[Rfam]
RNA sequence: CUGUCAUUGGACGAAGUGAAUGGGUCAAAUGGGCUUGCCUAAGUUCCGACCCAGGAAAGUCCCCGGGCUACUAUCCGCAGAGAUGCGGCCUCUGUAACGAGAGAGUCUUGCGGUGGAGAGACUCAGUCGGCUGAGACGCGUUUGUGGAGCUUAUGUGGUCUCUCCGCCGAUGAUAUCAUGGCCGUUCGACAGUUAUUCACCUGGUCCUUAAUGGACUAACUGAACGGGGCUUACGUUUCAAUGACA
Dot-bracket structure: .((((((((((..[.[[[[..((((.....((((((....))))))..))))....(((.((((...........((((....))))..(((......)))...(((...((((((((((........(((......((....))...)))........))))))))))..)))......................]]]].].((((.....)))).........)))))))....))))))))))